[Rfam]
Shown here is a 101-nucleotide RNA from Truepera sp., a member of the family "TPP riboswitch aptamer (THI element)". Taxonomically the source falls in Truepera (Bacteria, Thermotogati, Trueperales, Trueperaceae). The base pairs follow the family's consensus structure, which is taken from published work.
RNA sequence: CAUUAUCACCAGGGGUGCCUUCUGGCUGAGAGGGCUUAGGCCCAACCCUCGCGAACCUGAUCCGGAUAAUGCUGGCGUAGGGAGCGUGAUUGCAAAAGGCA
Numbered sequence: 001c002a003u004u005a006u007c008a009c010c011a012g013g014g015g016u017g018c019c020u021u022c023u024g025g026c027u028g029a030g031a032g033g034g035c036u037u038a039g040g041c042c043c044a045a046c047c048c049u050c051g052c053g054a055a056c057c058u059g060a061u062c063c064g065g066a067u068a069a070u071g072c073u074g075g076c077g078u079a080g081g082g083a084g085c086g087u088g089a090u091u092g093c094a095a096a097a098g099g100c101a
Stems, first nucleotide, its partner, number of pairs: 006089004011049004017026003033042003056081004062075004